[Rfam]
RNA sequence: UCUCCAUUUCACCCACUCUCUCGCCGAUCUGAGAUACGAGAAAGUGUGUGAAAUGAAGAGA
Numbered sequence: 001u002c003u004c005c006a007u008u009u010c011a012c013c014c015a016c017u018c019u020c021u022c023g024c025c026g027a028u029c030u031g032a033g034a035u036a037c038g039a040g041a042a043a044g045u046g047u048g049u050g051a052a053a054u055g056a057a058g059a060g061a
Stems, first nucleotide, its partner, number of pairs: 001059003005055003010050001012048001014046004019041004
Dot-bracket structure: (((.(((..(.(.((((.((((...............)))).)))).).)..))).)))..
The family of this 61-nucleotide sequence from Pristionchus pacificus is "mir-8364 microRNA precursor family". A search with the family's covariance model found it, with a score of 72 bits. Taxonomically the source falls in Pristionchus (Eukaryota, Nematoda, Rhabditina, Neodiplogasteridae). The family's consensus secondary structure was predicted with RNAalifold. Gene Ontology terms of the family: RISC complex and miRNA-mediated post-transcriptional gene silencing.